RNA sequence: CGAAACGAUAGAGGCGCGGGAGCUGAGGUAAGCUGCGUAUGCUAAGGGCGGGAGACCCGAUGACGCAGGCGAAUGUGACUUCCGCCGAAAGCACGGCUGCCCAUCCCGGCGCCAUGCUUGGGCGCAGCGGCCAGCGCGCUGCGACUGUCAUCUUGUUUAUUGGAUGAAGAGCUAUCGAUGCG
Numbered sequence: 001c002g003a004a005a006c007g008a009u010a011g012a013g014g015c016g017c018g019g020g021a022g023c024u025g026a027g028g029u030a031a032g033c034u035g036c037g038u039a040u041g042c043u044a045a046g047g048g049c050g051g052g053a054g055a056c057c058c059g060a061u062g063a064c065g066c067a068g069g070c071g072a073a074u075g076u077g078a079c080u081u082c083c084g085c086c087g088a089a090a091g092c093a094c095g096g097c098u099g100c101c102c103a104u105c106c107c108g109g110c111g112c113c114a115u116g117c118u119u120g121g122g123c124g125c126a127g128c129g130g131c132c133a134g135c136g137c138g139c140u141g142c143g144a145c146u147g148u149c150a151u152c153u154u155g156u157u158u159a160u161u162g163g164a165u166g167a168a169g170a171g172c173u174a175u176c177g178a179u180g181c182g
Base pairs, nucleotide, nucleotide: 006177007176008175009174010173011172016085017084018083019082020081021080022079024077033068034067035066036065037064089119090118091117092116093115095113096112097111100108120146121145123143124142125141126140127139128138129137148167149166150165151164152163153162
Record summary
The record is a 182-nucleotide sequence from Clostridium sp. CAG:226, which matches "Lysine riboswitch aptamer" in Rfam. It scores 70 bits against the family's covariance model. Rfam's curators write: Riboswitches are metabolite binding domains within certain messenger RNAs that serve as precision sensors for their corresponding targets. Lineage of the source: Bacteria > Bacillati > Eubacteriales > Clostridiaceae > Clostridium.